[Rfam]
RNA: epsC RNA
Organism: Paenibacillus oceani
Nucleotides: 112
Stems, first nucleotide, its partner, number of pairs: 001020004007035007036095004040090008050064006067079004098112005
Number, partner (000 for none) and nucleotide at each position: 001020a002019g003018g004017u005000a006000a007035u008034g009033u010032c011031u012030a013029c014000u015000g016000a017004a018003c019002c020001u021000u022000u023000a024000u025000c026000a027000c028000u029013g030012u031011a032010g033009g034008c035007a036095c037094u038093c039092g040090g041089c042088c043087a044086u045085g046084c047083u048000g049000u050064g051063g052062g053061u054060g055059a056000u057000u058000g059055u060054c061053a062052c063051c064050u065000u066000a067079g068078a069077c070076g071000u072000a073000a074000a075000u076070c077069g078068u079067c080000a081000a082000g083047a084046g085045u086044g087043u088042g089041g090040u091000g092039u093038g094037a095036g096000g097000c098112g099111g100110g101109g102108u103000u104000g105000a106000a107000u108102g109101c110100c111099c112098u